[Rfam]
RNA sequence: CCACUGGGACGACCCGGUGGCUGCGUGCUGAGUGGGGACGGCCUC
Numbered sequence: 001c002c003a004c005u006g007g008g009a010c011g012a013c014c015c016g017g018u019g020g021c022u023g024c025g026u027g028c029u030g031a032g033u034g035g036g037g038a039c040g041g042c043c044u045c
Stems, first nucleotide, its partner, number of pairs: 001020008034045004

This 45-nucleotide RNA from Leucobacter komagatae belongs to the Rfam family "Guanidine-II riboswitch aptamer (mini-ykkC)".